[Rfam]
RNA sequence: UCCUCGUUCAAAGGAUCGCAGUCGAAGCACACAAACGGAGCAGACCUUGUGUCUCUCAGCUCUUCAUGGGCUAAUUAAAGCUUUGGGAGAAAGUCCCCGGACGACCUUUUUACCUCGUGUAACAAAGGAACGCGGAAACGCGCCGCCAUAGAAGCACUGCGGCUUCUUUAAAUUUCUCCUUUCCUUCCUAUACCCAGGCCGACCUUUGUCCGCUGCUUGUACUCGCUUUCUGGACGUUUGAUUGCUGCUUCUGGGUGAGGGGGAGACCAUAUGGAUGAAGAUAUGAGUCCGAGCUCCUCUGAUCUCAGUUGCGGCAGAGCACUUGAAAGGACUGCGGGGAGGCGGGGAAGUACACUCGGUCUGGGUUGGGGCUCAUGGGAGGGGGGAGGCUUUCGUCGAGAGUGAUAGUUAUGCGAUUGCCCUUCUGGUCAGCCUCACGGUUGAUCUGGGGGGUAACUCGAUGGGGCUUAUUCUUGAGACGAGG
Numbered sequence: 001u002c003c004u005c006g007u008u009c010a011a012a013g014g015a016u017c018g019c020a021g022u023c024g025a026a027g028c029a030c031a032c033a034a035a036c037g038g039a040g041c042a043g044a045c046c047u048u049g050u051g052u053c054u055c056u057c058a059g060c061u062c063u064u065c066a067u068g069g070g071c072u073a074a075u076u077a078a079a080g081c082u083u084u085g086g087g088a089g090a091a092a093g094u095c096c097c098c099g100g101a102c103g104a105c106c107u108u109u110u111u112a113c114c115u116c117g118u119g120u121a122a123c124a125a126a127g128g129a130a131c132g133c134g135g136a137a138a139c140g141c142g143c144c145g146c147c148a149u150a151g152a153a154g155c156a157c158u159g160c161g162g163c164u165u166c167u168u169u170a171a172a173u174u175u176c177u178c179c180u181u182u183c184c185u186u187c188c189u190a191u192a193c194c195c196a197g198g199c200c201g202a203c204c205u206u207u208g209u210c211c212g213c214u215g216c217u218u219g220u221a222c223u224c225g226c227u228u229u230c231u232g233g234a235c236g237u238u239u240g241a242u243u244g245c246u247g248c249u250u251c252u253g254g255g256u257g258a259g260g261g262g263g264a265g266a267c268c269a270u271a272u273g274g275a276u277g278a279a280g281a282u283a284u285g286a287g288u289c290c291g292a293g294c295u296c297c298u299c300u301g302a303u304c305u306c307a308g309u310u311g312c313g314g315c316a317g318a319g320c321a322c323u324u325g326a327a328a329g330g331a332c333u334g335c336g337g338g339g340a341g342g343c344g345g346g347g348a349a350g351u352a353c354a355c356u357c358g359g360u361c362u363g364g365g366u367u368g369g370g371g372c373u374c375a376u377g378g379g380a381g382g383g384g385g386g387a388g389g390c391u392u393u394c395g396u397c398g399a400g401a402g403u404g405a406u407a408g409u410u411a412u413g414c415g416a417u418u419g420c421c422c423u424u425c426u427g428g429u430c431a432g433c434c435u436c437a438c439g440g441u442u443g444a445u446c447u448g449g450g451g452g453g454u455a456a457c458u459c460g461a462u463g464g465g466g467c468u469u470a471u472u473c474u475u476g477a478g479a480c481g482a483g484g
Stems, first nucleotide, its partner, number of pairs: 002484006008477004014418006022087001023085006038062004043057002091469003095466004131142004287390003295386006304379004313372001315370001359366002420453006
The family of this 484-nucleotide RNA from Pseudogymnoascus sp. VKM F-3775 is "RNase MRP". For this family Rfam cites "Phylogenetic analysis of the structure of RNase MRP RNA in yeasts" (Li et al., RNA, 2002). A search with the family's covariance model found it, with a score of 111 bits. The source organism's lineage runs through Eukaryota, Opisthokonta, saccharomyceta, Thelebolaceae and Pseudogymnoascus. Rfam classes the family as a ribozyme.